[Rfam]
RNA sequence: UCCCCAGAAGGAUCUGUCAUGCUGGAACAGAGUCAGCUGGGGAGGAGCUUCUUCUUCGAUUUGGAUGUUAUGUGAAUUAACUAUACUACAGAAAGACCAGAGGGAC
Numbered sequence: 001u002c003c004c005c006a007g008a009a010g011g012a013u014c015u016g017u018c019a020u021g022c023u024g025g026a027a028c029a030g031a032g033u034c035a036g037c038u039g040g041g042g043a044g045g046a047g048c049u050u051c052u053u054c055u056u057c058g059a060u061u062u063g064g065a066u067g068u069u070a071u072g073u074g075a076a077u078u079a080a081c082u083a084u085a086c087u088a089c090a091g092a093a094a095g096a097c098c099a100g101a102g103g104g105a106c
Stems, first nucleotide, its partner, number of pairs: 001105004042057004
The family of this 106-nucleotide RNA sequence from Ceuthmochares aereus is "Small nucleolar RNA U6-53/MBII-28". A reference for the family is Huttenhofer et al. (2001), "RNomics: an experimental approach that identifies 201 candidates for novel, small, non-messenger RNAs in mouse", EMBO J. Rfam 15.1 lists 780 matches to the family in 403 species.